The record is a 114-nucleotide sequence from Salarias fasciatus, which matches "Potassium channel RNA editing signal" in Rfam. The base pairs follow the family's consensus structure, which is taken from published work. About the family: This family represents a group of sequences related to the human potassium channel Kv1.1 hairpin element which directs the efficient modification of an adenosine to inosine by an adenosine deaminase acting on RNA (ADAR). The ADAR modification causes an isoleucine/valine recoding event which lies in the ion-conducting pore of the potassium channel. It is thought that this editing event targets the process of fast inactivation and allows a more rapid recovery from inactivation at negative potentials. The match comes from Rfam's covariance-model search (112 bits). Lineage of the source: Eukaryota > Craniata > Actinopterygii > Blenniidae > Salarias.
[Rfam]
RNA sequence: GUGGGCUACGGGGACAUGUGUCCCAUCACCAUGGGGGGGAAGAUGGUGGGCACCUUGUGCGCCAUUGCGGGUGUGCUGACCAUAGCUCUGCCUGUGCCGGUCAUCGUCUCCAAC
Numbered sequence: 001g002u003g004g005g006c007u008a009c010g011g012g013g014a015c016a017u018g019u020g021u022c023c024c025a026u027c028a029c030c031a032u033g034g035g036g037g038g039g040a041a042g043a044u045g046g047u048g049g050g051c052a053c054c055u056u057g058u059g060c061g062c063c064a065u066u067g068c069g070g071g072u073g074u075g076c077u078g079a080c081c082a083u084a085g086c087u088c089u090g091c092c093u094g095u096g097c098c099g100g101u102c103a104u105c106g107u108c109u110c111c112a113a114c
Stems, first nucleotide, its partner, number of pairs: 001114002004111002008107004013102003018097004037077002040074001049063003
Dot-bracket structure: ((.((..((((.(((..((((...............((.(........(((.........)))..........).))................))))..))).))))..)).))